[Rfam]
RNA sequence: UGAUAUUAAUUUUUUCAAAAAUGUGCGACUAAUCGGAAAUCUAAAACCAUUUAACGAAGGGGAUAAUGACUUAUGAAAACGACCAAAUCAGUCAUUACAAUUUUAUUACUCUAGAAGGACUUUGAGCGCUGUAGAAAUUUACAGUAGUUUGAGUCCUGUUUACGUUAAAUGGGAUUCUAGCAA
Numbered sequence: 001u002g003a004u005a006u007u008a009a010u011u012u013u014u015u016c017a018a019a020a021a022u023g024u025g026c027g028a029c030u031a032a033u034c035g036g037a038a039a040u041c042u043a044a045a046a047c048c049a050u051u052u053a054a055c056g057a058a059g060g061g062g063a064u065a066a067u068g069a070c071u072u073a074u075g076a077a078a079a080c081g082a083c084c085a086a087a088u089c090a091g092u093c094a095u096u097a098c099a100a101u102u103u104u105a106u107u108a109c110u111c112u113a114g115a116a117g118g119a120c121u122u123u124g125a126g127c128g129c130u131g132u133a134g135a136a137a138u139u140u141a142c143a144g145u146a147g148u149u150u151g152a153g154u155c156c157u158g159u160u161u162a163c164g165u166u167a168a169a170u171g172g173g174a175u176u177c178u179a180g181c182a183a
Stems, first nucleotide, its partner, number of pairs: 024182003047172010059112004064097008073088002116157005122152001125149003128145007
Dot-bracket structure: .......................(((....................((((((((((..((((.((((((((.((............)).))))))))...........))))...(((((.(..((((((((((....))))))).)))..)))))).....)))))))))).......))).
A member of the RNA family "Listeria sRNA rli60" from Listeria welshimeri, 183 nucleotides long. The sequence is in the family's curated seed alignment. The base pairs follow the family's consensus structure, which was predicted with RNAalifold.